[Rfam]
RNA sequence: UGCUUUUUUCGCCCAGGCGGAGCUCGACCGCAAGCUCAAAUCGUAAGCCGCUACGCGUACAUCGAUCAACAUCGCGACGCCUUUGGGGUCGAGCCGAUCUGCCGUGUGUUGCAGAUCGCCCCG
Numbered sequence: 001u002g003c004u005u006u007u008u009u010c011g012c013c014c015a016g017g018c019g020g021a022g023c024u025c026g027a028c029c030g031c032a033a034g035c036u037c038a039a040a041u042c043g044u045a046a047g048c049c050g051c052u053a054c055g056c057g058u059a060c061a062u063c064g065a066u067c068a069a070c071a072u073c074g075c076g077a078c079g080c081c082u083u084u085g086g087g088g089u090c091g092a093g094c095c096g097a098u099c100u101g102c103c104g105u106g107u108g109u110u111g112c113a114g115a116u117c118g119c120c121c122c123g
Stems, first nucleotide, its partner, number of pairs: 017031004084123005095118002098115005104109001
The family of this 123-nucleotide RNA from Acidihalobacter ferrooxydans is "ALIL pseudoknot". The family has 26 seed sequences and 2,146 matches in Rfam 15.1. NCBI's taxonomy places the organism under Bacteria, Gammaproteobacteria, Chromatiales, Ectothiorhodospiraceae, Acidihalobacter. Its family is annotated with positive regulation of translational frameshifting in the Gene Ontology. Rfam classes the family as a cis-regulatory element.